[Rfam]
RNA sequence: UCGUACAGAUUUGCUGCCUGAAUAGGCAAUGGCUGGUGAUUUAAACGUCACCGGCCU
Numbered sequence: 001u002c003g004u005a006c007a008g009a010u011u012u013g014c015u016g017c018c019u020g021a022a023u024a025g026g027c028a029a030u031g032g033c034u035g036g037u038g039a040u041u042u043a044a045a046c047g048u049c050a051c052c053g054g055c056c057u
Stems, first nucleotide, its partner, number of pairs: 015028004031056010

Pseudomonas sRNA P26: a 57-nucleotide RNA from Thalassotalea mangrovi. It is annotated as a non-coding RNA gene. Taxonomically the source falls in Thalassotalea (Bacteria, Pseudomonadota, Alteromonadales, Colwelliaceae). The match comes from Rfam's covariance-model search (40 bits). From the family's description: This small RNA (sRNA) was computationally identified in the genome of the opportunistic pathogen Pseudomonas aeruginosa and its expression verified by northern blot analysis. P26 is conserved across many Gammaproteobacteria species and appears to be consistently located between the DNA directed RNA polymerase (beta subunit) and 50S ribosomal protein L7/L12 genes. The family's consensus secondary structure was predicted with RNAalifold.